[Rfam]
RNA sequence: CAACUACCUAAGGGGUGGCUCAGCCUGAGAUGUCUUAGACAAACCCUUUGAACCUGAUCCGGGUGAUACCGGCGUAGGAAUAGGUCUCUCUUUUUGC
Numbered sequence: 001c002a003a004c005u006a007c008c009u010a011a012g013g014g015g016u017g018g019c020u021c022a023g024c025c026u027g028a029g030a031u032g033u034c035u036u037a038g039a040c041a042a043a044c045c046c047u048u049u050g051a052a053c054c055u056g057a058u059c060c061g062g063g064u065g066a067u068a069c070c071g072g073c074g075u076a077g078g079a080a081u082a083g084g085u086c087u088c089u090c091u092u093u094u095u096g097c
Base pairs, nucleotide, nucleotide: 006085007084008083009082010081011047012046013045014044016041017025018024019023032040033039034038053078054077055076056075059072060071061070062069
A member of the RNA family "TPP riboswitch aptamer (THI element)" from Umboniibacter marinipuniceus, 97 nucleotides long. Gene Ontology term of the family: thiamine pyrophosphate binding.